[Rfam]
RNA sequence: ACCUUUAUUUCGCUUAAAUUGGCGUAUUGCCAGUGCGGGGGAACCAAUCAAGUGGUGGUAUAUACACCUGGGGUUAAGCCUUUUGGAAAAAAGCGGGGGUACUCCUGAUCCCUCACCCGACAGCUCACCUCGUAAGCGUUAGUUUUUAGGAGAA
Number, nucleotide and partner (000 for none) at each position: 001a000002c000003c000004u000005u000006u000007a000008u000009u000010u000011c138012g137013c136014u135015u000016a000017a000018a034019u033020u032021g031022g030023c029024g028025u000026a000027u000028u024029g023030c022031c021032a020033g019034u018035g133036c132037g131038g130039g129040g128041g000042a000043a000044c000045c070046a069047a000048u000049c000050a000051a000052g000053u000054g000055g000056u000057g000058g000059u000060a000061u000062a000063u000064a000065c000066a000067c000068c000069u046070g045071g118072g117073g116074u000075u000076a000077a000078g000079c093080c000081u091082u090083u000084u000085g000086g000087a000088a000089a000090a082091a081092a000093g079094c000095g000096g112097g111098g110099g109100u000101a000102c000103u000104c000105c000106u000107g000108a000109u099110c098111c097112c096113u000114c000115a000116c073117c072118c071119g000120a000121c000122a000123g000124c000125u000126c000127a000128c040129c039130u038131c037132g036133u035134a000135a014136g013137c012138g011139u000140u000141a000142g000143u000144u000145u000146u000147u000148a000149g000150g000151a000152g000153a000154a000

Rfam assigns this 154-nucleotide RNA sequence from Salipaludibacillus agaradhaerens to the family "c-di-AMP riboswitch aptamer (ydaO/yuaA leader)". The source organism's lineage runs through Bacteria, Bacilli, Caryophanales, Bacillaceae and Salipaludibacillus.